The record is an 80-nucleotide RNA sequence from Gadus morhua, which matches "mir-27 microRNA precursor family" in Rfam. Pairs were carried over by alignment from the consensus structure, which was predicted with RNAalifold. Rfam 15.1 lists 1,440 matches to the family in 645 species. The organism belongs to Gadus, within Eukaryota.
RNA sequence: CCAGGGCACAGAGCUUAGCUAAUUGGUGAGCAUUGAUCCCUGCAAUGUGUUGUUCACAGUGGCUAAGUUCAGUGCCCGAG
Numbered sequence: 001c002c003a004g005g006g007c008a009c010a011g012a013g014c015u016u017a018g019c020u021a022a023u024u025g026g027u028g029a030g031c032a033u034u035g036a037u038c039c040c041u042g043c044a045a046u047g048u049g050u051u052g053u054u055c056a057c058a059g060u061g062g063c064u065a066a067g068u069u070c071a072g073u074g075c076c077c078g079a080g
Stems, first nucleotide, its partner, number of pairs: 011070010026057007